This 206-nucleotide sequence belongs to the Rfam family "malK-I RNA".
RNA sequence: UCGGUCUUUUCCGCUUCACUCCACUUUUUGAGGCGGCAAGGGCUGCAUAAAAAGGAGGAAACCCGCCCCGCCUCGAAUUGGGGCGCCCCUCGGCUUGGGGUGCGGCACUGUGGAGACGUGCCGCAAUGCGUGUCCGACAUAAGCGCGGAACGCGAGACGGUUCGUUGGAGAAGUCCGGGAUCGUUAAAGUCAAACGCAGUAUGGCA
Numbered sequence: 001u002c003g004g005u006c007u008u009u010u011c012c013g014c015u016u017c018a019c020u021c022c023a024c025u026u027u028u029u030g031a032g033g034c035g036g037c038a039a040g041g042g043c044u045g046c047a048u049a050a051a052a053a054g055g056a057g058g059a060a061a062c063c064c065g066c067c068c069c070g071c072c073u074c075g076a077a078u079u080g081g082g083g084c085g086c087c088c089c090u091c092g093g094c095u096u097g098g099g100g101u102g103c104g105g106c107a108c109u110g111u112g113g114a115g116a117c118g119u120g121c122c123g124c125a126a127u128g129c130g131u132g133u134c135c136g137a138c139a140u141a142a143g144c145g146c147g148g149a150a151c152g153c154g155a156g157a158c159g160g161u162u163c164g165u166u167g168g169a170g171a172a173g174u175c176c177g178g179g180a181u182c183g184u185u186a187a188a189g190u191c192a193a194a195c196g197c198a199g200u201a202u203g204g205c206a
Base pairs, nucleotide, nucleotide: 006041007040008039009038011036012035013034014033015032016031017030018029086100087099088098089097090193092191093190094189095188096187101125102124103123104122105121106120107119108118110117111116128153129152130151131150133149134148135147136146156185157184158183159182160181161180162179163178167176168175169174
Rfam classes the family as a cis-regulatory element.